[Rfam]
RNA sequence: GGGCACCAAUGCUCCUCUGUUGAACUCAAGAGCAGAACCUGUGUUGACUUCAACAGGAGCAAGACUCAGCCCU
Numbered sequence: 001g002g003g004c005a006c007c008a009a010u011g012c013u014c015c016u017c018u019g020u021u022g023a024a025c026u027c028a029a030g031a032g033c034a035g036a037a038c039c040u041g042u043g044u045u046g047a048c049u050u051c052a053a054c055a056g057g058a059g060c061a062a063g064a065c066u067c068a069g070c071c072c073u
Base pairs, nucleotide, nucleotide: 002071003070008066010064013061015059016058017057018055019054020053021052022051023050024049026047027046028045029044031042033041
Annotation: Shown here is a 73-nucleotide sequence from Picathartes gymnocephalus, a member of the family "mir-1744 microRNA precursor family". Pairs were carried over by alignment from the consensus structure, which was predicted with RNAalifold. The family has 2 seed sequences and 249 matches in Rfam 15.1. Taxonomically the source falls in Picathartes (Eukaryota, Gnathostomata, Coelurosauria, Passeriformes). The match comes from Rfam's covariance-model search (76 bits).